[Rfam]
RNA sequence: AUUGGGGGGAGGGGUCUCUCAGCCCGGAUUGCAAGAGGGCGCAGGCCAGGCCGAGGGACCCCACCAGUGCAUG
Numbered sequence: 001a002u003u004g005g006g007g008g009g010a011g012g013g014g015u016c017u018c019u020c021a022g023c024c025c026g027g028a029u030u031g032c033a034a035g036a037g038g039g040c041g042c043a044g045g046c047c048a049g050g051c052c053g054a055g056g057g058a059c060c061c062c063a064c065c066a067g068u069g070c071a072u073g
Stems, first nucleotide, its partner, number of pairs: 003071002005068001008065002011062010022051003026047002029044004